[Rfam]
RNA sequence: GGGCAAUGAUGAGAAAAAUUAGAGGAAGUCAUGCACCACGCUGAUCCUAACCUGUGCUGAUAAUUCUCUCUACCCAUAUUUUCCUCUGAGCUU
Numbered sequence: 001g002g003g004c005a006a007u008g009a010u011g012a013g014a015a016a017a018a019u020u021a022g023a024g025g026a027a028g029u030c031a032u033g034c035a036c037c038a039c040g041c042u043g044a045u046c047c048u049a050a051c052c053u054g055u056g057c058u059g060a061u062a063a064u065u066c067u068c069u070c071u072a073c074c075c076a077u078a079u080u081u082u083c084c085u086c087u088g089a090g091c092u093u
Base pairs, nucleotide, nucleotide: 001093002092003091004090
RNA: Small nucleolar RNA Z221/R21b
Organism: Hibiscus syriacus